[Rfam]
Overview: The family of this 100-nucleotide sequence from Desulforamulus aquiferis is "Purine riboswitch aptamer". NCBI's taxonomy places the organism under Bacteria, Bacillati, Bacillota, Clostridia, Desulforamulus. Clan: Purine riboswitches. Rfam links the family to the GO term purine nucleobase biosynthetic process.
RNA sequence: AUGUUUUAAAAUAAUAAUUAUCGUAUAUGCUUGGGAAUUGGCCCAAGUGUUUCUACCGGGUGACCGUAAUCGCCUGACUACGAGAGGGAAAGUGUACCUA
Numbered sequence: 001a002u003g004u005u006u007u008a009a010a011a012u013a014a015u016a017a018u019u020a021u022c023g024u025a026u027a028u029g030c031u032u033g034g035g036a037a038u039u040g041g042c043c044c045a046a047g048u049g050u051u052u053c054u055a056c057c058g059g060g061u062g063a064c065c066g067u068a069a070u071c072g073c074c075u076g077a078c079u080a081c082g083a084g085a086g087g088g089a090a091a092g093u094g095u096a097c098c099u100a
Base pairs, nucleotide, nucleotide: 018086019085021083022082023081024080025079029048030047031046032045033044034043035042057076058075059074060073061072062071063070